Background
The family of this 319-nucleotide RNA from Terrapene triunguis is "Nuclear RNase P". A search with the family's covariance model found it, with a score of 203 bits. Rfam 15.1 lists 3,848 matches to the family in 1,862 species. Lineage of the source: Eukaryota > Opisthokonta > Craniata > Durocryptodira > Terrapene. Rfam's curators write: Ribonuclease P (RNase P) is a ubiquitous endoribonuclease, found in archaea, bacteria and eukarya as well as chloroplasts and mitochondria. The family's RNA type in Rfam is ribozyme.
[Rfam]
RNA sequence: GUCAGAGGGAAGCUCACCACUGAGGUCACAUGCAGGGUGCUUGUCACUCAGUGUUCAAUACCUCUGGGAAGGUCUGAGACAAGAGCCAUUAGCUGCCCUUGCAGGGCAUCACCUGCUGCAGGUGGAUGAGUUACCAGCUAUGUUGGGCCCUGGGGGUGGGGCAAAUUGGGCAAGAGAAGCUAGAGGAAACCCCCCUAGUGGAUGCCCAGCCCCCUCCCAAGGGUUUGGGACAGACUCAUGGCUGGCACAACUGAGUUCAAUGGGAUGAGGUGAGACCCCAGAGGCCUCAUAACCCAAUUCAGACUACUCUCCCUCUGAC
Numbered sequence: 001g002u003c004a005g006a007g008g009g010a011a012g013c014u015c016a017c018c019a020c021u022g023a024g025g026u027c028a029c030a031u032g033c034a035g036g037g038u039g040c041u042u043g044u045c046a047c048u049c050a051g052u053g054u055u056c057a058a059u060a061c062c063u064c065u066g067g068g069a070a071g072g073u074c075u076g077a078g079a080c081a082a083g084a085g086c087c088a089u090u091a092g093c094u095g096c097c098c099u100u101g102c103a104g105g106g107c108a109u110c111a112c113c114u115g116c117u118g119c120a121g122g123u124g125g126a127u128g129a130g131u132u133a134c135c136a137g138c139u140a141u142g143u144u145g146g147g148c149c150c151u152g153g154g155g156g157u158g159g160g161g162c163a164a165a166u167u168g169g170g171c172a173a174g175a176g177a178a179g180c181u182a183g184a185g186g187a188a189a190c191c192c193c194c195c196u197a198g199u200g201g202a203u204g205c206c207c208a209g210c211c212c213c214c215u216c217c218c219a220a221g222g223g224u225u226u227g228g229g230a231c232a233g234a235c236u237c238a239u240g241g242c243u244g245g246c247a248c249a250a251c252u253g254a255g256u257u258c259a260a261u262g263g264g265a266u267g268a269g270g271u272g273a274g275a276c277c278c279c280a281g282a283g284g285c286c287u288c289a290u291a292a293c294c295c296a297a298u299u300c301a302g303a304c305u306a307c308u309c310u311c312c313c314u315c316u317g318a319c
Stems, first nucleotide, its partner, number of pairs: 001319004008312003013269004017264002022064004035049005074302005084243004094108005109125006126239007147224005270290005276284001